Rfam assigns this 62-nucleotide sequence from Jimmervirus jimmer to the family "GP20-b RNA". Lineage of the source: Viruses > Duplodnaviria > Caudoviricetes > Jimmervirus > Jimmervirus jimmer. It is annotated as a cis-regulatory element. It scores 40 bits against the family's covariance model.

RNA sequence: UUUCGGUACUGUCGGCGUAAAAGAACAGGACAUCACCGGACGAAACCGGGAUAAAAAACGUA
Numbered sequence: 001u002u003u004c005g006g007u008a009c010u011g012u013c014g015g016c017g018u019a020a021a022a023g024a025a026c027a028g029g030a031c032a033u034c035a036c037c038g039g040a041c042g043a044a045a046c047c048g049g050g051a052u053a054a055a056a057a058a059c060g061u062a
Base pairs, nucleotide, nucleotide: 001017003015004014009028010027011026012025036049037048038047